[Rfam]
Shown here is a 165-nucleotide sequence from Caenorhabditis elegans, a member of the family "U1 spliceosomal RNA". Gene Ontology terms of the family: mRNA 5'-splice site recognition, pre-mRNA 5'-splice site binding and U1 snRNP. Rfam's curators write: U1 is a small nuclear RNA (snRNA) component of the spliceosome (involved in pre-mRNA splicing). NCBI's taxonomy places the organism under Eukaryota, Chromadorea, Rhabditida, Rhabditomorpha, Caenorhabditis. Rfam's curators put it in the seed alignment.

RNA sequence: AAACUUACCUGGCUGGGGGUUAUUUCGCGAUCACAAAGGCGGAAUCCCCAUGGUUAGGCCUACCCAUUGCACUUUUGGUGCGGGCUGACCUGUGUGGCAGUCUCGAGUUGAGAUUCGCCAACAGCUUAAUUUUUGCGUAUCGGGGCUGCGUGCGCGCGGCCCUGA
Numbered sequence: 001a002a003a004c005u006u007a008c009c010u011g012g013c014u015g016g017g018g019g020u021u022a023u024u025u026c027g028c029g030a031u032c033a034c035a036a037a038g039g040c041g042g043a044a045u046c047c048c049c050a051u052g053g054u055u056a057g058g059c060c061u062a063c064c065c066a067u068u069g070c071a072c073u074u075u076u077g078g079u080g081c082g083g084g085c086u087g088a089c090c091u092g093u094g095u096g097g098c099a100g101u102c103u104c105g106a107g108u109u110g111a112g113a114u115u116c117g118c119c120a121a122c123a124g125c126u127u128a129a130u131u132u133u134u135g136c137g138u139a140u141c142g143g144g145g146c147u148g149c150g151u152g153c154g155c156g157c158g159g160c161c162c163u164g165a
Base pairs, nucleotide, nucleotide: 012125013124014123015122016049017048018047019046021044024043025042026041027040028039050093051092052091053090057086058085059084061082063080064078065077095120096119097118099115100114102112103111141164142163143162144161145160147158148157149156150155